[Rfam]
RNA sequence: GCACGGCCGAAUUCCGCACGAGCUUUCCUCAGUAGCUGAUGUGGUCAGACACUGUGCCAGAACAAAUUCCUCGCUUGCACUCCGAUUGGUAUGCAUUUUACCUGAGAACGGGCAUGCCCUGGGAAGCGGGGUACACGG
Numbered sequence: 001g002c003a004c005g006g007c008c009g010a011a012u013u014c015c016g017c018a019c020g021a022g023c024u025u026u027c028c029u030c031a032g033u034a035g036c037u038g039a040u041g042u043g044g045u046c047a048g049a050c051a052c053u054g055u056g057c058c059a060g061a062a063c064a065a066a067u068u069c070c071u072c073g074c075u076u077g078c079a080c081u082c083c084g085a086u087u088g089g090u091a092u093g094c095a096u097u098u099u100a101c102c103u104g105a106g107a108a109c110g111g112g113c114a115u116g117c118c119c120u121g122g123g124a125a126g127c128g129g130g131g132u133a134c135a136c137g138g
Base pairs, nucleotide, nucleotide: 001057002056003055004054005053006052014044015043016042017041018040070131071130072129073127074126075125076124078122088118089117090116091115092114093113094112096110
The family of this 138-nucleotide sequence from Eurypyga helias is "Small nucleolar RNA SNORA15".
For this family Rfam cites "RNomics: an experimental approach that identifies 201 candidates for novel, small, non-messenger RNAs in mouse" (Huttenhofer et al., EMBO J, 2001).
The source organism's lineage runs through Eukaryota, Eumetazoa, Craniata, Sauria and Eurypyga.
Rfam describes the family as follows. ACA15 is a member of the H/ACA class of snoRNA that guide the sites of modification of uridines to pseudouridines.
The family's RNA type in Rfam is H/ACA-box small nucleolar RNA.